RNA sequence: CGAGUUGGUGGCUAGGGUUCCGGCAUCCAAGAGAUGCGCUGGUCCGAGAGCUGCCACCGCGACGGGAGACAUCCGGCGCGGGUGCACGGCGGGAUAAAAGCCCGGGAGAC
Number, nucleotide and partner (000 for none) at each position: 001c000002g000003a000004g000005u000006u000007g055008g054009u053010g052011g051012c050013u000014a000015g045016g044017g000018u000019u000020c042021c041022g039023g037024c036025a035026u034027c033028c000029a000030a000031g000032a000033g027034a026035u025036g024037c023038g000039c022040u000041g021042g020043u000044c016045c015046g000047a000048g000049a000050g012051c011052u010053g009054c008055c007056a083057c081058c080059g079060c078061g077062a000063c075064g074065g073066g000067a000068g000069a000070c000071a000072u000073c065074c064075g063076g000077c061078g060079c059080g058081g057082g000083u056084g000085c105086a000087c108088g000089g000090c000091g103092g102093g101094a000095u000096a000097a000098a000099a000100g000101c093102c092103c091104g000105g085106g000107a000108g087109a000110c000